[Rfam]
RNA sequence: UGCCAUUGCUAAGUCAAGUCUUCUUCCUGCGACUUUGUGUCGUGUUUUUCUCCAUGGAAGUUUGUCUGUUACAGCUCUGGCAGAUUGACGCUGGCCCGUGCCGAAUUUCAUUCUGAAGCUAGGCUGACCAGUUUUCGUUUUGAAAACUGGUCGUAAAGGGCUGAGCAGUGUUCUGUUUGUGAGUUGAGUGCUGCUUCUGCCUCGUUGGCGGCUUUGUAGCAGUCCUCUUAGUAACAUUUCACACAUCU
Numbered sequence: 001u002g003c004c005a006u007u008g009c010u011a012a013g014u015c016a017a018g019u020c021u022u023c024u025u026c027c028u029g030c031g032a033c034u035u036u037g038u039g040u041c042g043u044g045u046u047u048u049u050c051u052c053c054a055u056g057g058a059a060g061u062u063u064g065u066c067u068g069u070u071a072c073a074g075c076u077c078u079g080g081c082a083g084a085u086u087g088a089c090g091c092u093g094g095c096c097c098g099u100g101c102c103g104a105a106u107u108u109c110a111u112u113c114u115g116a117a118g119c120u121a122g123g124c125u126g127a128c129c130a131g132u133u134u135u136c137g138u139u140u141u142g143a144a145a146a147c148u149g150g151u152c153g154u155a156a157a158g159g160g161c162u163g164a165g166c167a168g169u170g171u172u173c174u175g176u177u178u179g180u181g182a183g184u185u186g187a188g189u190g191c192u193g194c195u196u197c198u199g200c201c202u203c204g205u206u207g208g209c210g211g212c213u214u215u216g217u218a219g220c221a222g223u224c225c226u227c228u229u230a231g232u233a234a235c236a237u238u239u240c241a242c243a244c245a246u247c248u
Stems, first nucleotide, its partner, number of pairs: 003080003017067002020064001023060005029043005091168003095165001097163001100124003104120001106118004125153003131147007170242002175237002178234001186227003192221004197211005

Overview: The family of this 248-nucleotide sequence from Aspergillus udagawae is "Small nucleolar RNA snR191". The family's consensus secondary structure was predicted with WAR. The family's RNA type in Rfam is H/ACA-box small nucleolar RNA. Its Rfam clan is "SNORA74 clan". A search with the family's covariance model found it, with a score of 50 bits.